[Rfam]
Nucleotides: 113
Stems, first nucleotide, its partner, number of pairs: 008063005015054002020051002022048001023045006066084006088108001090111001094106003
Number, partner (000 for none) and nucleotide at each position: 001000a002000u003000u004000a005000a006000u007000a008063g009062c010061u011060u012059c013000u014000a015054g016053g017000g018000u019000u020051c021050c022048g023045g024044u025043u026042u027041a028040a029000c030000a031000c032000u033000u034000u035000u036000g037000a038000a039000g040028u041027u042026a043025a044024a045023u046000g047000a048022c049000u050021g051020g052000u053016c054015c055000a056000a057000g058000a059012g060011a061010a062009g063008c064000a065000c066084c067083c068082a069081g070080u071079u072000u073000a074000u075000c076000a077000a078000a079071a080070a081069c082068u083067g084066g085000u086000c087000a088108c089000a090111c091000g092000g093000c094106g095105g096104g097000a098000a099000a100000a101000a102000a103000g104096c105095c106094c107000g108088g109000g110000a111090g112000a113000u

This 113-nucleotide RNA sequence from aff. Roholtiella sp. LEGE 12411 belongs to the Rfam family "Guanidine-I riboswitch aptamer". From the family's description: This family represents a conserved RNA structure found upstream of the ykkC and yxkD genes in Bacillus subtilis and related genes in other bacteria. The function of this family is unclear although it has been suggested that it may function to switch on efflux pumps and detoxification systems in response to harmful environmental molecules. A search with the family's covariance model found it, with a score of 82 bits. Taxonomically the source falls in Roholtiella (Bacteria, Cyanobacteriota, Cyanophyceae, Nostocales). On this family, see Nelson et al., Mol Cell 2017: "Metabolism of Free Guanidine in Bacteria Is Regulated by a Widespread Riboswitch Class".